[Rfam]
RNA: FMN riboswitch aptamer (RFN element)
RNA sequence: AAGUACCUUCGGGGCUGGGUGCGGGGCCACAGGCCCCAAUUCCCGACCGGCGGUAAUCCGUCCCCGGACGGCGAGCCCGCGAGCCGCAAGGCAGGAAUCCGGUGCGAUCCCGGUGCCGACAGUAAGAGUCUGGAUGGGAGAAGGUGCGU
Numbered sequence: 001a002a003g004u005a006c007c008u009u010c011g012g013g014g015c016u017g018g019g020u021g022c023g024g025g026g027c028c029a030c031a032g033g034c035c036c037c038a039a040u041u042c043c044c045g046a047c048c049g050g051c052g053g054u055a056a057u058c059c060g061u062c063c064c065c066g067g068a069c070g071g072c073g074a075g076c077c078c079g080c081g082a083g084c085c086g087c088a089a090g091g092c093a094g095g096a097a098u099c100c101g102g103u104g105c106g107a108u109c110c111c112g113g114u115g116c117c118g119a120c121a122g123u124a125a126g127a128g129u130c131u132g133g134a135u136g137g138g139a140g141a142a143g144g145u146g147c148g149u
Stems, first nucleotide, its partner, number of pairs: 003147008017044003046129002048118002050080004075116002083092003099113004120132003
Dot-bracket structure: ..((((((((......(((......................))).[[((((((.....................[[))))..(((....)))......((((.......)))).]])).(((.....]]))).......))))))))..